[Rfam]
Rfam assigns this 92-nucleotide RNA sequence from Scophthalmus maximus to the family "Vault RNA". Taxonomically the source falls in Scophthalmus (Eukaryota, Chordata, Percomorphaceae, Carangaria). The family's consensus secondary structure is taken from published work. About the family: This family of RNAs are found as part of the enigmatic vault ribonucleoprotein complex.

RNA sequence: GCACUGGUUUAGCUCAGUGGUUACUUCGUUCAAUUGUCACUGAUCACUAUCCUCUCCGGGGGAUCGAACCGCGGGCGCUGUCCAGUGUUUUC
Dot-bracket structure: .((((((....((((.((((....((((....................................)))))))))))).....)))))).....